[Rfam]
7SK RNA: a 330-nucleotide sequence from Salvator merianae. The family is grouped with related families in Rfam's "7SK clan". By type it is a non-coding RNA gene. NCBI's taxonomy places the organism under Eukaryota, Sarcopterygii, Bifurcata, Teiioidea, Salvator.
RNA sequence: GGAUGUGAGGACAAUCUGGCUGCAACAUCUGUCACCCCAUUGAUUGCCAGGGUUGAUUCCGCUGAUCUGCCUGGGUAGGCGGGUGUCACCUUCCUCCCUCACCGCUCCAUGUGUGUUCCUCCCAAAGCUGUGCGCUCAGUGAAAGAGGGCGACCAUCCCAGAUAAAAGGAGUGUACCGUUCUUCCGUCAAGGGUAUACAAUAGCUGUGCUCCCCUGCUAGAACCUCCGAACAAGCUCAAGGUUCAUUUGUAGGAGACAUAAGAUAGUCAAGCUUCCAAGACUCCAGACACAUCCAAGUAAGGCGCUGCAUGUGGCAGUUUGUCAUUCUUU
Numbered sequence: 001g002g003a004u005g006u007g008a009g010g011a012c013a014a015u016c017u018g019g020c021u022g023c024a025a026c027a028u029c030u031g032u033c034a035c036c037c038c039a040u041u042g043a044u045u046g047c048c049a050g051g052g053u054u055g056a057u058u059c060c061g062c063u064g065a066u067c068u069g070c071c072u073g074g075g076u077a078g079g080c081g082g083g084u085g086u087c088a089c090c091u092u093c094c095u096c097c098c099u100c101a102c103c104g105c106u107c108c109a110u111g112u113g114u115g116u117u118c119c120u121c122c123c124a125a126a127g128c129u130g131u132g133c134g135c136u137c138a139g140u141g142a143a144a145g146a147g148g149g150c151g152a153c154c155a156u157c158c159c160a161g162a163u164a165a166a167a168g169g170a171g172u173g174u175a176c177c178g179u180u181c182u183u184c185c186g187u188c189a190a191g192g193g194u195a196u197a198c199a200a201u202a203g204c205u206g207u208g209c210u211c212c213c214c215u216g217c218u219a220g221a222a223c224c225u226c227c228g229a230a231c232a233a234g235c236u237c238a239a240g241g242u243u244c245a246u247u248u249g250u251a252g253g254a255g256a257c258a259u260a261a262g263a264u265a266g267u268c269a270a271g272c273u274u275c276c277a278a279g280a281c282u283c284c285a286g287a288c289a290c291a292u293c294c295a296a297g298u299a300a301g302g303c304g305c306u307g308c309a310u311g312u313g314g315c316a317g318u319u320u321g322u323c324a325u326u327c328u329u330u
Stems, first nucleotide, its partner, number of pairs: 001108003005102006014092001018090002025086009035074002038069002042067004046062002118169003122139001125136001127135002140162001147158003203272003209266002213262001215260002224255004230250005295330003299325001301323003304318005